[Rfam]
Nucleotides: 135
Stems, first nucleotide, its partner, number of pairs: 001056005014044006021037001023036003069127005088109005
Number, partner (000 for none) and nucleotide at each position: 001056c002055c003054u004053c005052c006000u007000u008000u009000c010000u011000u012000g013000g014044c015043a016042u017041g018040c019039g020000c021037g022000u023036g024035g025034u026000g027000u028000u029000c030000c031000c032000g033000u034025a035024c036023u037021c038000g039019u040018g041017u042016g043015u044014g045000u046000a047000u048000g049000u050000c051000u052005g053004g054003a055002g056001g057000a058000a059000u060000a061000a062000a063000a064000u065000c066000g067000u068000c069127c070126a071125g072124u073123g074000c075000u076000a077000u078000g079000u080000c081000u082000u083000c084000g085000g086000u087000g088109c089108c090107a091106g092105c093000a094000u095000g096000u097000u098000u099000c100000u101000g102000u103000c104000g105092g106091c107090u108089g109088g110000u111000c112000c113000u114000a115000u116000c117000c118000u119000c120000a121000a122000u123073c124072a125071c126070u127069g128000g129000u130000a131000c132000a133000c134000c135000g
Shown here is a 135-nucleotide RNA from Chanos chanos, a member of the family "Small nucleolar RNA SNORA57". It is annotated as an H/ACA-box small nucleolar RNA. Lineage of the source: Eukaryota > Opisthokonta > Osteoglossocephalai > Otomorpha > Chanos. For this family Rfam cites "Identification of 13 novel human modification guide RNAs" (Vitali et al., Nucleic Acids Res, 2003). U99 belongs to the H/ACA class of snoRNAs which are thought to guide the sites of modification of uridines to pseudouridines, the target for this family is unknown. Pairs were carried over by alignment from the consensus structure, which was predicted with PFOLD. The match comes from Rfam's covariance-model search (88 bits).